[Rfam]
RNA sequence: UUUAUCCGGGGUCUCCACCAGUCAGCGAGGAUUCGCCCACUGGUGUCGUCUCC
Dot-bracket structure: ...............(((((((..((((....))))..)))))))........
RNA: ffh sRNA
Organism: Iodidimonas nitroreducens